[Rfam]
RNA sequence: CAAUGGAGGAGUGCGGUGUGAGACAACCACUGAACAAAUGGUUUAGUGAUUACCUCACAGCGCGCUCCUACCGUGU
Numbered sequence: 001c002a003a004u005g006g007a008g009g010a011g012u013g014c015g016g017u018g019u020g021a022g023a024c025a026a027c028c029a030c031u032g033a034a035c036a037a038a039u040g041g042u043u044u045a046g047u048g049a050u051u052a053c054c055u056c057a058c059a060g061c062g063c064g065c066u067c068c069u070a071c072c073g074u075g076u
Stems, first nucleotide, its partner, number of pairs: 003074004007069009017059006025051002028048008